Record summary:
A member of the RNA family "Bacillaceae-1 RNA" from Sporosarcina sp. BI001-red, 66 nucleotides long. It is annotated as a small RNA.
RNA sequence: UUUCAUGGAAACAACCUAAGAUCGCGGCGCCCUACCGCAACGGUUGCAUGACCUGCAUCCUGUAGG
Number, nucleotide and partner (000 for none) at each position: 001u000002u000003u000004c000005a000006u000007g000008g000009a000010a000011a000012c046013a045014a044015c043016c042017u000018a000019a000020g000021a000022u000023c000024g038025c037026g036027g035028c000029g000030c000031c000032c000033u000034a000035c027036c026037g025038c024039a000040a000041c000042g016043g015044u014045u013046g012047c000048a000049u000050g000051a000052c066053c065054u064055g063056c062057a000058u000059c000060c000061u000062g056063u055064a054065g053066g052

Lineage of the source: Bacteria > Bacillati > Caryophanales > Caryophanaceae > Sporosarcina.